RNA sequence: GAAAUCAAGUAGGAGUUCCCGCUUCUCGCCUGACAACUUCGGUCGUCGGGCUAGUCGUUUUCAAUUAAUUCUUAUUAAUCGUUUAUAAUAAUAGAAUUAAUAAAUAGCGGGUACUUUAUGUACUCGCUAUUUUUUUAUAAG
Numbered sequence: 001g002a003a004a005u006c007a008a009g010u011a012g013g014a015g016u017u018c019c020c021g022c023u024u025c026u027c028g029c030c031u032g033a034c035a036a037c038u039u040c041g042g043u044c045g046u047c048g049g050g051c052u053a054g055u056c057g058u059u060u061u062c063a064a065u066u067a068a069u070u071c072u073u074a075u076u077a078a079u080c081g082u083u084u085a086u087a088a089u090a091a092u093a094g095a096a097u098u099a100a101u102a103a104a105u106a107g108c109g110g111g112u113a114c115u116u117u118a119u120g121u122a123c124u125c126g127c128u129a130u131u132u133u134u135u136u137a138u139a140a141g
Stems, first nucleotide, its partner, number of pairs: 011026006028051003033046002036043002106128009
The family of this 141-nucleotide RNA sequence from Acetilactobacillus jinshanensis is "Ribosomal protein L20 leader". Its family is annotated with regulation of gene expression in the Gene Ontology. NCBI's taxonomy places the organism under Bacteria, Bacillati, Bacillota, Bacilli, Acetilactobacillus. Pairs were carried over by alignment from the consensus structure, which was predicted with CMfinder.